RNA: FMN riboswitch aptamer (RFN element)
Organism: Galactobacter caseinivorans
RNA sequence: UACGUGCUCCGGGGUCGGUGAAAUUCCGAACCGGCGGUGAUAGUCCGCGACCCGCAGACCGCCUCUCACGAGGCAACGUGCGGUUGAACUGGUGAAAUUCCGGUACCGACAGUCAAAGUCUGGAUGGGAGAAGCACGGA
Numbered sequence: 001u002a003c004g005u006g007c008u009c010c011g012g013g014g015u016c017g018g019u020g021a022a023a024u025u026c027c028g029a030a031c032c033g034g035c036g037g038u039g040a041u042a043g044u045c046c047g048c049g050a051c052c053c054g055c056a057g058a059c060c061g062c063c064u065c066u067c068a069c070g071a072g073g074c075a076a077c078g079u080g081c082g083g084u085u086g087a088a089c090u091g092g093u094g095a096a097a098u099u100c101c102g103g104u105a106c107c108g109a110c111a112g113u114c115a116a117a118g119u120c121u122g123g124a125u126g127g128g129a130g131a132a133g134c135a136c137g138g139a
Stems, first nucleotide, its partner, number of pairs: 003137006010130001016028003030119002032108002034048004043106002052083005088104005110122003